[Rfam]
RNA sequence: UAGUGUUACAGCUCUUUUAGAAUUUUGUCUAGCAGGUUUUCCAAUCUUUACUGGGAAGCCCCU
Numbered sequence: 001u002a003g004u005g006u007u008a009c010a011g012c013u014c015u016u017u018u019a020g021a022a023u024u025u026u027g028u029c030u031a032g033c034a035g036g037u038u039u040u041c042c043a044a045u046c047u048u049u050a051c052u053g054g055g056a057a058g059c060c061c062c063u
Stems, first nucleotide, its partner, number of pairs: 035060009045050001
RNA: U7 small nuclear RNA
Organism: Gorilla gorilla